[Rfam]
RNA: DUF3800-VIII RNA
Nucleotides: 065
Base pairs, nucleotide, nucleotide: 002064003063004062005061006060007059008058011055012054013053014052015051016050020040021039022038023037024036026034027033028032
Number, partner (000 for none) and nucleotide at each position: 001000u002064g003063c004062a005061c006060u007059c008058u009000g010000a011055u012054g013053g014052u015051c016050c017000g018000a019000a020040g021039c022038c023037c024036c025000a026034c027033g028032c029000c030000u031000c032028g033027c034026g035000c036024g037023g038022g039021g040020u041000a042000u043000u044000g045000a046000u047000g048000u049000a050016g051015g052014a053013u054012c055011a056000a057000a058008g059007g060006a061005g062004u063003g064002c065000u